[Rfam]
RNA sequence: AGCCCUUUGUAUCCGUGCUGAGGUUUCGUCACACACCAAACCACAAGGGCUGAUGAGACUCCCAACAUGAGUAAAGUU
Numbered sequence: 001a002g003c004c005c006u007u008u009g010u011a012u013c014c015g016u017g018c019u020g021a022g023g024u025u026u027c028g029u030c031a032c033a034c035a036c037c038a039a040a041c042c043a044c045a046a047g048g049g050c051u052g053a054u055g056a057g058a059c060u061c062c063c064a065a066c067a068u069g070a071g072u073a074a075a076g077u078u
Base pairs, nucleotide, nucleotide: 002077003076006073008071010069011068012067016064017063020061021060022059024058025057026056027055028054029053030052
RNA: mir-3492 microRNA precursor family
Organism: Schistosoma margrebowiei